[Rfam]
RNA sequence: GAAGUUCGCCAGGCAGUCGCGACGCGCCUUGUGCGCUUCGAGGAAAGUCCGGGCCCCAUAGAGCAGGAUGCCGGCUAACGGCCGGGCGCCAUACGCUGGAAACAGCCAAAGCGAUGGAAAGUGCCGCCCGAAGGGGCGGCCCGGUGAUUGCACGUGACCUGUGCCGCUUGCGGCGGGGCAACCCGAGCGUGCAUCGCCUGGCAACAGAAAGGAUACCGCCGACGACCACAGGUGUCGGGUAAGGGUGAAACGGUGAGGUAAGAGCUCACCGCGGACGUGGCGACACGGACGGCACGGUAAACCCCAUCCGGGGCAAGGCCAAAUAGGGGGGCCAUGACGUGGCUCGCGUCGCCCCCGGGUAGGCUGCAUGAGCGGCAUGGCAACAUGUCGCCGAGAGGAAUGACUGCCCGGCGCCCGUGAGGGCGUUCGACAGAACCCGGCUUAUCGGCGAACUUCCCAA
Numbered sequence: 001g002a003a004g005u006u007c008g009c010c011a012g013g014c015a016g017u018c019g020c021g022a023c024g025c026g027c028c029u030u031g032u033g034c035g036c037u038u039c040g041a042g043g044a045a046a047g048u049c050c051g052g053g054c055c056c057c058a059u060a061g062a063g064c065a066g067g068a069u070g071c072c073g074g075c076u077a078a079c080g081g082c083c084g085g086g087c088g089c090c091a092u093a094c095g096c097u098g099g100a101a102a103c104a105g106c107c108a109a110a111g112c113g114a115u116g117g118a119a120a121g122u123g124c125c126g127c128c129c130g131a132a133g134g135g136g137c138g139g140c141c142c143g144g145u146g147a148u149u150g151c152a153c154g155u156g157a158c159c160u161g162u163g164c165c166g167c168u169u170g171c172g173g174c175g176g177g178g179c180a181a182c183c184c185g186a187g188c189g190u191g192c193a194u195c196g197c198c199u200g201g202c203a204a205c206a207g208a209a210a211g212g213a214u215a216c217c218g219c220c221g222a223c224g225a226c227c228a229c230a231g232g233u234g235u236c237g238g239g240u241a242a243g244g245g246u247g248a249a250a251c252g253g254u255g256a257g258g259u260a261a262g263a264g265c266u267c268a269c270c271g272c273g274g275a276c277g278u279g280g281c282g283a284c285a286c287g288g289a290c291g292g293c294a295c296g297g298u299a300a301a302c303c304c305c306a307u308c309c310g311g312g313g314c315a316a317g318g319c320c321a322a323a324u325a326g327g328g329g330g331g332c333c334a335u336g337a338c339g340u341g342g343c344u345c346g347c348g349u350c351g352c353c354c355c356c357g358g359g360u361a362g363g364c365u366g367c368a369u370g371a372g373c374g375g376c377a378u379g380g381c382a383a384c385a386u387g388u389c390g391c392c393g394a395g396a397g398g399a400a401u402g403a404c405u406g407c408c409c410g411g412c413g414c415c416c417g418u419g420a421g422g423g424c425g426u427u428c429g430a431c432a433g434a435a436c437c438c439g440g441c442u443u444a445u446c447g448g449c450g451a452a453c454u455u456c457c458c459a460a
Stems, first nucleotide, its partner, number of pairs: 001456010011445001012408007020040003024036004045443003049440005054313004061345004066309005071085005086115001087113003116304002121302002123298003137244001139240008252270006271293001272291002276287004317365004327356006336350005372391008
Overview: The family of this 460-nucleotide sequence from Nitrogeniibacter mangrovi is "Bacterial RNase P class A". Taxonomically the source falls in Nitrogeniibacter (Bacteria, Pseudomonadota, Rhodocyclales, Zoogloeaceae). Ribonuclease P (RNase P) is a ubiquitous endoribonuclease, found in archaea, bacteria and eukarya as well as chloroplasts and mitochondria.